[Rfam]
RNA sequence: CAUCGAGGUAGAGGUCGCGAGGUUCAUUAAUCCUGUGGAGUGGAGCAACACGUAGAAACAGGCCUAGGGAACAUCGCCGAAAUGACACUUUUUUGCUUAAAAAGUGUGGUUGGGUCGUAAGUAAAUAACUUACGAACUGUCUUAGCAAUUCGCUAAGGUGCGCUAUGUUUUGU
Numbered sequence: 001c002a003u004c005g006a007g008g009u010a011g012a013g014g015u016c017g018c019g020a021g022g023u024u025c026a027u028u029a030a031u032c033c034u035g036u037g038g039a040g041u042g043g044a045g046c047a048a049c050a051c052g053u054a055g056a057a058a059c060a061g062g063c064c065u066a067g068g069g070a071a072c073a074u075c076g077c078c079g080a081a082a083u084g085a086c087a088c089u090u091u092u093u094u095g096c097u098u099a100a101a102a103a104g105u106g107u108g109g110u111u112g113g114g115u116c117g118u119a120a121g122u123a124a125a126u127a128a129c130u131u132a133c134g135a136a137c138u139g140u141c142u143u144a145g146c147a148a149u150u151c152g153c154u155a156a157g158g159u160g161c162g163c164u165a166u167g168u169u170u171u172g173u
Stems, first nucleotide, its partner, number of pairs: 006168001008166004017077004022072004032062005081111003085107008112138002115135008140158007
RNA: Lysine riboswitch aptamer
Organism: Enterococcus italicus